[Rfam]
Record summary: Rfam assigns this 73-nucleotide sequence from Agromyces intestinalis to the family "tRNA". Rfam links the family to the GO term triplet codon-amino acid adaptor activity. NCBI's taxonomy places the organism under Bacteria, Actinomycetes, Micrococcales, Microbacteriaceae, Agromyces.
Nucleotides: 073
Stems, first nucleotide, its partner, number of pairs: 001072007010025004027043005049065005
Number, partner (000 for none) and nucleotide at each position: 001072a002071g003070g004069g005068c006067g007066g008000u009000a010025g011024u012023u013022c014000a015000a016000u017000u018000g019000g020000u021000a022013g023012a024011g025010c026000a027043g028042c029041g030040g031039u032000c033000u034000c035000c036000a037000a038000a039031a040030c041029c042028g043027c044000a045000a046000g047000u048000u049065g050064c051063a052062g053061g054000u055000u056000c057000g058000a059000g060000u061053c062052c063051u064050g065049u066007c067006c068005g069004c070003c071002c072001u073000g